[Rfam]
RNA: Streptomyces sRNA 4677
RNA sequence: CGUCCCGGCGGCCCACGACAUCAAAGACUUAAAGAACCGGGGAAAUUACCCAACCAAACCCAACCCAACCCCUCCCACCUCCCCCGGUGGGCCCGUCACCCACACGGGUGAGGUUUGCCAACUCAGCUGGAUUUCCGACUGGUUGGCUGGCAUAUGCUCACGCUCACCACACCCGACAUACGUCGGCCCCCGGCCGGGACGGCAAUCCCGAUCGAGGGCCUGACCACCGAGGAAGAGAACGACUUCCCG
Numbered sequence: 001c002g003u004c005c006c007g008g009c010g011g012c013c014c015a016c017g018a019c020a021u022c023a024a025a026g027a028c029u030u031a032a033a034g035a036a037c038c039g040g041g042g043a044a045a046u047u048a049c050c051c052a053a054c055c056a057a058a059c060c061c062a063a064c065c066c067a068a069c070c071c072c073u074c075c076c077a078c079c080u081c082c083c084c085c086g087g088u089g090g091g092c093c094c095g096u097c098a099c100c101c102a103c104a105c106g107g108g109u110g111a112g113g114u115u116u117g118c119c120a121a122c123u124c125a126g127c128u129g130g131a132u133u134u135c136c137g138a139c140u141g142g143u144u145g146g147c148u149g150g151c152a153u154a155u156g157c158u159c160a161c162g163c164u165c166a167c168c169a170c171a172c173c174c175g176a177c178a179u180a181c182g183u184c185g186g187c188c189c190c191c192g193g194c195c196g197g198g199a200c201g202g203c204a205a206u207c208c209c210g211a212u213c214g215a216g217g218g219c220c221u222g223a224c225c226a227c228c229g230a231g232g233a234a235g236a237g238a239a240c241g242a243c244u245u246c247c248c249g
Base pairs, nucleotide, nucleotide: 007228008227010225096111097110098109099108100107101106126163127162128160129159130158185220186219187218188217189216191214192213196209197208198207199206231247232246233245234244235243